[Rfam]
About this RNA
The family of this 172-nucleotide RNA sequence from Glycine max is "small nucleolar RNA snoR143". Taxonomically the source falls in Glycine subgen. Soja (Eukaryota, Streptophyta, Gunneridae, Phaseoleae). The base pairs follow the family's consensus structure, which was predicted with RNAalifold. On this family, see Chen and Wu, Nucleic Acids Res 2009: "Mining small RNA sequencing data: a new approach to identify small nucleolar RNAs in Arabidopsis". Gene Ontology terms of the family: nucleolus and RNA processing. The family has 3 seed sequences and 660 matches in Rfam 15.1. It scores 109 bits against the family's covariance model.
RNA sequence: UUGCACUAUGUAGUAUCGUAGGUCUCUCUGAUUAUGUGGAGCGGCCUUUGAGCAAUGGUGCAUAAAGUGAGAGCUGAUUAGUCAGCAGGCAGCCAGACAACUGCCGAGGUGGAUCCACAGAUGAACGGCUCAUUUGUUAAUGCUGUUUGUCUACUAAUUCCACCUUACAUUU
Dot-bracket structure: .(((((..(((....(((.(((((.((((........)))).)))))).)))))...)))))...........................................((((((((..........((..(...............)..))..........))))))))......
Numbered sequence: 001u002u003g004c005a006c007u008a009u010g011u012a013g014u015a016u017c018g019u020a021g022g023u024c025u026c027u028c029u030g031a032u033u034a035u036g037u038g039g040a041g042c043g044g045c046c047u048u049u050g051a052g053c054a055a056u057g058g059u060g061c062a063u064a065a066a067g068u069g070a071g072a073g074c075u076g077a078u079u080a081g082u083c084a085g086c087a088g089g090c091a092g093c094c095a096g097a098c099a100a101c102u103g104c105c106g107a108g109g110u111g112g113a114u115c116c117a118c119a120g121a122u123g124a125a126c127g128g129c130u131c132a133u134u135u136g137u138u139a140a141u142g143c144u145g146u147u148u149g150u151c152u153a154c155u156a157a158u159u160c161c162a163c164c165u166u167a168c169a170u171u172u
Stems, first nucleotide, its partner, number of pairs: 002062005009054003016051002018048001020047005026041004106166008124148002128144001